[Rfam]
RNA sequence: CCCUUCCUCUCUGAAAUAAUAAAAAAUAUAUUUUAAAAAAUUUGAGCUUACUAUAGCAACAAAGUCUAACCUAUUCCAGUGCUCUCUUCUCUAUGAGACAAGCAGUUAUAUAGACUUAGACACU
Dot-bracket structure: ......((((.(((((((..........))))))..).)....)))...............(((((((...(((..(.((....((((......))))...)).)..)))))))))).......
Numbered sequence: 001c002c003c004u005u006c007c008u009c010u011c012u013g014a015a016a017u018a019a020u021a022a023a024a025a026a027u028a029u030a031u032u033u034u035a036a037a038a039a040a041u042u043u044g045a046g047c048u049u050a051c052u053a054u055a056g057c058a059a060c061a062a063a064g065u066c067u068a069a070c071c072u073a074u075u076c077c078a079g080u081g082c083u084c085u086c087u088u089c090u091c092u093a094u095g096a097g098a099c100a101a102g103c104a105g106u107u108a109u110a111u112a113g114a115c116u117u118a119g120a121c122a123c124u
Stems, first nucleotide, its partner, number of pairs: 007046003010039001012037001013034006062117007072110003077105001079103002085098004
Background
A member of the RNA family "Small nucleolar RNA SNORA28" from Cnephaeus nilssonii, 124 nucleotides long. ACA28 is a member of the H/ACA class of snoRNA that guide the sites of modification of uridines to pseudouridines. Its family is annotated with nucleolus and RNA processing in the Gene Ontology. The match comes from Rfam's covariance-model search (90 bits). The family's RNA type in Rfam is H/ACA-box small nucleolar RNA. Rfam 15.1 lists 922 matches to the family in 535 species.